[Rfam]
RNA: PyrR binding site
RNA sequence: CAUCCCUUAAAUUCAGUCCCGUGAGGCUGAGAAGGUAGCAUAAGAUGUGUUUUUUGUAUACGUUUGUUUUAUGCGCGAGACCUCUCACCAAAGGGUGAGAGGUCUUUUUUUG
Numbered sequence: 001c002a003u004c005c006c007u008u009a010a011a012u013u014c015a016g017u018c019c020c021g022u023g024a025g026g027c028u029g030a031g032a033a034g035g036u037a038g039c040a041u042a043a044g045a046u047g048u049g050u051u052u053u054u055u056g057u058a059u060a061c062g063u064u065u066g067u068u069u070u071a072u073g074c075g076c077g078a079g080a081c082c083u084c085u086c087a088c089c090a091a092a093g094g095g096u097g098a099g100a101g102g103u104c105u106u107u108u109u110u111u112g
Stems, first nucleotide, its partner, number of pairs: 003037001005035004013030006039073009049063002052060001077106013